[Rfam]
RNA sequence: AGCCGGUAAGCCGAAAACGGGAUAACAGAGUAGGCA
Numbered sequence: 001a002g003c004c005g006g007u008a009a010g011c012c013g014a015a016a017a018c019g020g021g022a023u024a025a026c027a028g029a030g031u032a033g034g035c036a
Stems, first nucleotide, its partner, number of pairs: 003020003010035003